[Rfam]
RNA sequence: CGUUGGUCCUCCAAAGGCCAACACCGAAGAGGCUUGUCCUUCAUUGCCGGCCGUGCGGGGUCUUCCCCAAUCGAACGGUGUUUCGGGUCCGGACGUUUCGUCCGCUGUCGCCGGCGUCUCCACAGCGCCUCGCGACGGCAGCGAUUCAUUCGG
Numbered sequence: 001c002g003u004u005g006g007u008c009c010u011c012c013a014a015a016g017g018c019c020a021a022c023a024c025c026g027a028a029g030a031g032g033c034u035u036g037u038c039c040u041u042c043a044u045u046g047c048c049g050g051c052c053g054u055g056c057g058g059g060g061u062c063u064u065c066c067c068c069a070a071u072c073g074a075a076c077g078g079u080g081u082u083u084c085g086g087g088u089c090c091g092g093a094c095g096u097u098u099c100g101u102c103c104g105c106u107g108u109c110g111c112c113g114g115c116g117u118c119u120c121c122a123c124a125g126c127g128c129c130u131c132g133c134g135a136c137g138g139c140a141g142c143g144a145u146u147c148a149u150u151c152g153g
Base pairs, nucleotide, nucleotide: 002022003021004020005019006018007017008016031048032047033046055133056132057131076095077094103116104115105114106113107112
Background:
Shown here is a 153-nucleotide RNA sequence from Allobosea spartocytisi, a member of the family "speF leader". The family's RNA type in Rfam is cis-regulatory leader. NCBI's taxonomy places the organism under Bacteria, Pseudomonadota, Alphaproteobacteria, Alloboseaceae, Allobosea. Gene Ontology term of the family: regulation of gene expression. The literature on the family includes a 2005 paper in Genome Biol by Corbino et al., "Evidence for a second class of S-adenosylmethionine riboswitches and other regulatory RNA motifs in alpha-proteobacteria".